A member of the RNA family "mir-190 microRNA precursor family" from Brassicogethes aeneus, 77 nucleotides long. A reference for the family is Bar et al. (2008), "MicroRNA discovery and profiling in human embryonic stem cells by deep sequencing of small RNA libraries", Stem Cells. The base pairs follow the family's consensus structure, which was predicted with RNAalifold. Rfam 15.1 lists 1,667 matches to the family in 854 species.
RNA sequence: UUUUCUAUAAGAUAUGUUUGAUAUUCUUGGUUGUUAAUUUAAAAGCACCCAGGAGUCAAACAUAUUAUUAUAGCGGG
Numbered sequence: 001u002u003u004u005c006u007a008u009a010a011g012a013u014a015u016g017u018u019u020g021a022u023a024u025u026c027u028u029g030g031u032u033g034u035u036a037a038u039u040u041a042a043a044a045g046c047a048c049c050c051a052g053g054a055g056u057c058a059a060a061c062a063u064a065u066u067a068u069u070a071u072a073g074c075g076g077g
Stems, first nucleotide, its partner, number of pairs: 005073005011066012024053002029050002032047002